[Rfam]
RNA sequence: GUCGCCGCCGCCUCUGAUUCGCUUGGUGCAGGUCGGGAACGCUCCAAGACGCCGGCGUAUGAGACGGAUCCCGCCUUGCAUCAACUGAAUUGGAGGCGGAACGCGACG
Number, nucleotide and partner (000 for none) at each position: 001g000002u000003c000004g000005c000006c000007g000008c000009c000010g000011c000012c000013u094014c093015u000016g000017a090018u089019u088020c087021g000022c000023u084024u083025g082026g081027u080028g079029c078030a077031g076032g075033u000034c073035g072036g071037g070038a069039a000040c067041g000042c000043u000044c000045c000046a000047a000048g000049a000050c000051g000052c000053c000054g000055g000056c000057g000058u000059a000060u000061g000062a000063g000064a000065c000066g000067g040068a000069u038070c037071c036072c035073g034074c000075c032076u031077u030078g029079c028080a027081u026082c025083a024084a023085c000086u000087g020088a019089a018090u017091u000092g000093g014094a013095g000096g000097c000098g000099g000100a000101a000102c000103g000104c000105g000106a000107c000108g000

The record is a 108-nucleotide RNA from Phoenix dactylifera, which matches "MIR168 microRNA precursor family" in Rfam. Lineage of the source: Eukaryota > Embryophyta > Euphyllophyta > Phoeniceae > Phoenix. The family's consensus secondary structure was predicted with WAR.